Shown here is a 119-nucleotide sequence from Morus notabilis, a member of the family "mir-399 microRNA precursor family". The family's consensus secondary structure was predicted with PFOLD. Rfam's curators write: mir-399 was identified in both Arabidopsis thaliana and Oryza sativa computationally and was later experimentally verified. mir-399 is thought to target mRNAs coding for a phosphatase transporter. The mature sequence is excised from the 3' arm of the hairpin. A search with the family's covariance model found it, with a score of 65 bits. Gene Ontology terms of the family: miRNA-mediated post-transcriptional gene silencing and RISC complex.
RNA sequence: CAUUGAAUGGCAGGGCAAUUCUCCUUUGGCAGAAAGUAGUGCCAAAUUAGUAAUAAUAUUAAUAUUGUGGCAAUAUUGUUACACGCUCUGCCAAAGGAGAAUCGCACUGUCAUUCUUCU
Numbered sequence: 001c002a003u004u005g006a007a008u009g010g011c012a013g014g015g016c017a018a019u020u021c022u023c024c025u026u027u028g029g030c031a032g033a034a035a036g037u038a039g040u041g042c043c044a045a046a047u048u049a050g051u052a053a054u055a056a057u058a059u060u061a062a063u064a065u066u067g068u069g070g071c072a073a074u075a076u077u078g079u080u081a082c083a084c085g086c087u088c089u090g091c092c093a094a095a096g097g098a099g100a101a102u103c104g105c106a107c108u109g110u111c112a113u114u115c116u117u118c119u
Stems, first nucleotide, its partner, number of pairs: 005115005011109003015105002018102002021099004027093007